[Rfam]
The record is a 62-nucleotide RNA, which matches "L2-Alphaproteobacteria ribosomal protein leader" in Rfam. A reference for the family is Eckert and Weinberg (2020), "Discovery of 20 novel ribosomal leader candidates in bacteria and archaea", BMC Microbiol. It is one of the family's seed sequences.

RNA sequence: GACCCAUUAGGGGUUAGACCAUAGCAAGGAUCAGCGUUGCAUUAGAAAACGGAAGACAGAAA
Numbered sequence: 001g002a003c004c005c006a007u008u009a010g011g012g013g014u015u016a017g018a019c020c021a022u023a024g025c026a027a028g029g030a031u032c033a034g035c036g037u038u039g040c041a042u043u044a045g046a047a048a049a050c051g052g053a054a055g056a057c058a059g060a061a062a
Stems, first nucleotide, its partner, number of pairs: 001015005024040004029035001